The record is an 87-nucleotide RNA from Nicotiana sylvestris, which matches "small nucleolar RNA snoR114" in Rfam.
It scores 47 bits against the family's covariance model.
By type it is a C/D-box small nucleolar RNA.
Taxonomically the source falls in Nicotiana (Eukaryota, Viridiplantae, Streptophytina, Nicotianeae).

[Rfam]
RNA sequence: GGGCAAUGAAGUUACCUUGCACUAAUUGUGAACGAUGGGUCGUCACAUACGUCUGACUUAAGAUGAAAAAAAUGUGCAUCCGAGCUC
Dot-bracket structure: ((((...............................................................................))))